[Rfam]
RNA: mir-290 microRNA precursor family
RNA sequence: GUGGUACUCAAACUAUGGGGGCACUUUUUGUUCUGGAAUAAAGUGCCGCCAGGUUUUGAGCACUGC
Numbered sequence: 001g002u003g004g005u006a007c008u009c010a011a012a013c014u015a016u017g018g019g020g021g022c023a024c025u026u027u028u029u030g031u032u033c034u035g036g037a038a039u040a041a042a043g044u045g046c047c048g049c050c051a052g053g054u055u056u057u058g059a060g061c062a063c064u065g066c
Stems, first nucleotide, its partner, number of pairs: 004063002007060006016051003020047008